[Rfam]
RNA sequence: GGGGGCGUACUGGCUUCGACGUGGGUGCUGAAACAUAAGGAGCAUACCGGGGCGGAUGAGGACCUCGAUAAAAACGUCCAUUUUGUAAUUGGCAACGAUUACGCACUUGCAGCUUAAUUAAUCUGCACGAUCAACCUUGUGGUGGUUCCGCACUUGGAUUGAUCGUCAUUUAGGGACCUCGGAGUGUUGGGUUUUCUCCAGCAGACACUCUUAAAUUUACUGGGGGAGAGGUCUUAGGGAUUUUGUCUGUGGAAGCCCGAGGACCAAUCUAAAACACUGACUAAGUAUGUAGCGCCUUAUCGCGGAUCACUUGCGGACGCGGGUUCAAUUCCCGCCGCCUCCACCA
Numbered sequence: 001g002g003g004g005g006c007g008u009a010c011u012g013g014c015u016u017c018g019a020c021g022u023g024g025g026u027g028c029u030g031a032a033a034c035a036u037a038a039g040g041a042g043c044a045u046a047c048c049g050g051g052g053c054g055g056a057u058g059a060g061g062a063c064c065u066c067g068a069u070a071a072a073a074a075c076g077u078c079c080a081u082u083u084u085g086u087a088a089u090u091g092g093c094a095a096c097g098a099u100u101a102c103g104c105a106c107u108u109g110c111a112g113c114u115u116a117a118u119u120a121a122u123c124u125g126c127a128c129g130a131u132c133a134a135c136c137u138u139g140u141g142g143u144g145g146u147u148c149c150g151c152a153c154u155u156g157g158a159u160u161g162a163u164c165g166u167c168a169u170u171u172a173g174g175g176a177c178c179u180c181g182g183a184g185u186g187u188u189g190g191g192u193u194u195u196c197u198c199c200a201g202c203a204g205a206c207a208c209u210c211u212u213a214a215a216u217u218u219a220c221u222g223g224g225g226g227a228g229a230g231g232u233c234u235u236a237g238g239g240a241u242u243u244u245g246u247c248u249g250u251g252g253a254a255g256c257c258c259g260a261g262g263a264c265c266a267a268u269c270u271a272a273a274a275c276a277c278u279g280a281c282u283a284a285g286u287a288u289g290u291a292g293c294g295c296c297u298u299a300u301c302g303c304g305g306a307u308c309a310c311u312u313g314c315g316g317a318c319g320c321g322g323g324u325u326c327a328a329u330u331c332c333c334g335c336c337g338c339c340u341c342c343a344c345c346a
Stems, first nucleotide, its partner, number of pairs: 001342007020315008029306001034302001035300006042293001043289005048067005054079005108127005128165006136157002139153003145178001147176002149173001182210006195227005230265006237258003241254003245281003249277003319335005
This 346-nucleotide RNA belongs to the Rfam family "transfer-messenger RNA". Bacterial tmRNA, also known as 10Sa RNA or SsrA, is named for its dual tRNA and mRNA-like properties. Its role is to liberate the mRNA from a stalled ribosome. To accomplish this part of the tmRNA is used as a reading frame that ends in a translation stop signal. The broken mRNA is replaced in the ribosome by the tmRNA and translation of the tmRNA leads to addition of a proteolysis tag to the incomplete protein enabling recognition by a protease. The match comes from Rfam's covariance-model search (183 bits). The base pairs follow the family's consensus structure, which is taken from published work. Its Rfam clan is "tRNA clan". Rfam links the family to the GO term RNA catabolic process. By type it is a non-coding RNA gene.